[Rfam]
RNA sequence: UAUUAAUAAAAUAUGUACUCUCAUAUAUUUUCGAAAAUAUGGUUCGAAAGUUUCUACGGGAUGACCUUAAAUUAUCCUACUAUGAGAAGAAUAACAGAUAAU
Numbered sequence: 001u002a003u004u005a006a007u008a009a010a011a012u013a014u015g016u017a018c019u020c021u022c023a024u025a026u027a028u029u030u031u032c033g034a035a036a037a038u039a040u041g042g043u044u045c046g047a048a049a050g051u052u053u054c055u056a057c058g059g060g061a062u063g064a065c066c067u068u069a070a071a072u073u074a075u076c077c078u079a080c081u082a083u084g085a086g087a088a089g090a091a092u093a094a095c096a097g098a099u100a101a102u
Base pairs, nucleotide, nucleotide: 019087020086021085022084023083024082025081029049030048031047032046033045034044035043058078059077060076061075062074063073064072